Rfam assigns this 599-nucleotide part of an RNA from Rhizoctonia solani to the family "Eukaryotic large subunit ribosomal RNA".
[Rfam]
RNA sequence: GUGAACUAUGCCUGCAUAGGGUGAAGCCAGAGGAAACUCUGGUGGAGGCUCGUAGCGAUUCUGACGUGCAAAUCGAUCGUCAAAUGUGGGUAUAGGGGCGAAAGACUAAUCGAACCAUUGGUUUUUGCUACUUGGUGGUUAAGAGGUCAUCUGAAAGGAUUUAUGACCUAGUGAGCGUUGAGGCUUGCGACACUGUCAAAUUGCGGGGACGUCCUAAAGCUUUUGCGACCAAGCAUUUGUGGAAACACAAGUGUGGCCGAGUUAAUAGCCCUGGGUAUGGUAAAACUGCAAAAGAUGUUACAAUGGAUAAUCCGCAGCCAAGUCCUAAGGGCCCCUGGUAAUAAAUAUUGAGUUUAUUUCCAAGAGUCUAUGGAUGCAGUUCACAGACUAAAUGGCAGUGGGUGUGUAUUGAGUUGGGAUUUAUUCUGGCUCUACAUGCUUAAGAUAUAGUCGGUCCUGCCGCGAAAGCGGACUGGUGGAUGAAGUUCAUGGUCCCUCAACUUCAAGGCCAUUGUUCUGGAGCCACUGGGUGUGAUUGGGAUUUUUUGGUGAAUUUAUUUGCUAAAAAAUACAAUGCCCAAUUUACAUGGGGUUUAAUG
Numbered sequence: 001g002u003g004a005a006c007u008a009u010g011c012c013u014g015c016a017u018a019g020g021g022u023g024a025a026g027c028c029a030g031a032g033g034a035a036a037c038u039c040u041g042g043u044g045g046a047g048g049c050u051c052g053u054a055g056c057g058a059u060u061c062u063g064a065c066g067u068g069c070a071a072a073u074c075g076a077u078c079g080u081c082a083a084a085u086g087u088g089g090g091u092a093u094a095g096g097g098g099c100g101a102a103a104g105a106c107u108a109a110u111c112g113a114a115c116c117a118u119u120g121g122u123u124u125u126u127g128c129u130a131c132u133u134g135g136u137g138g139u140u141a142a143g144a145g146g147u148c149a150u151c152u153g154a155a156a157g158g159a160u161u162u163a164u165g166a167c168c169u170a171g172u173g174a175g176c177g178u179u180g181a182g183g184c185u186u187g188c189g190a191c192a193c194u195g196u197c198a199a200a201u202u203g204c205g206g207g208g209a210c211g212u213c214c215u216a217a218a219g220c221u222u223u224u225g226c227g228a229c230c231a232a233g234c235a236u237u238u239g240u241g242g243a244a245a246c247a248c249a250a251g252u253g254u255g256g257c258c259g260a261g262u263u264a265a266u267a268g269c270c271c272u273g274g275g276u277a278u279g280g281u282a283a284a285a286c287u288g289c290a291a292a293a294g295a296u297g298u299u300a301c302a303a304u305g306g307a308u309a310a311u312c313c314g315c316a317g318c319c320a321a322g323u324c325c326u327a328a329g330g331g332c333c334c335c336u337g338g339u340a341a342u343a344a345a346u347a348u349u350g351a352g353u354u355u356a357u358u359u360c361c362a363a364g365a366g367u368c369u370a371u372g373g374a375u376g377c378a379g380u381u382c383a384c385a386g387a388c389u390a391a392a393u394g395g396c397a398g399u400g401g402g403u404g405u406g407u408a409u410u411g412a413g414u415u416g417g418g419a420u421u422u423a424u425u426c427u428g429g430c431u432c433u434a435c436a437u438g439c440u441u442a443a444g445a446u447a448u449a450g451u452c453g454g455u456c457c458u459g460c461c462g463c464g465a466a467a468g469c470g471g472a473c474u475g476g477u478g479g480a481u482g483a484a485g486u487u488c489a490u491g492g493u494c495c496c497u498c499a500a501c502u503u504c505a506a507g508g509c510c511a512u513u514g515u516u517c518u519g520g521a522g523c524c525a526c527u528g529g530g531u532g533u534g535a536u537u538g539g540g541a542u543u544u545u546u547u548g549g550u551g552a553a554u555u556u557a558u559u560u561g562c563u564a565a566a567a568a569a570u571a572c573a574a575u576g577c578c579c580a581a582u583u584u585a586c587a588u589g590g591g592g593u594u595u596a597a598u599g
Base pairs, nucleotide, nucleotide: 001598002597006095007094008093009092010091011090012089013088014087015086016085017083019051020050021049022048026043027042028041029040030039031038032037055080056079057078058077060076061075063074064073097594098593099592

Pairs were carried over by alignment from the consensus structure, which is taken from published work.
The match comes from Rfam's covariance-model search (3148 bits).